[Rfam]
RNA sequence: AAUUGGCUUAAUCUCAGCUGGCAACUGUGAGCACUCCAGAACCCCUCACGGUUGGAGCUGGGAUUGUGCUAAAC
Numbered sequence: 001a002a003u004u005g006g007c008u009u010a011a012u013c014u015c016a017g018c019u020g021g022c023a024a025c026u027g028u029g030a031g032c033a034c035u036c037c038a039g040a041a042c043c044c045c046u047c048a049c050g051g052u053u054g055g056a057g058c059u060g061g062g063a064u065u066g067u068g069c070u071a072a073a074c
Stems, first nucleotide, its partner, number of pairs: 003072005009066009022054001023052001026050006
RNA: mir-216 microRNA precursor family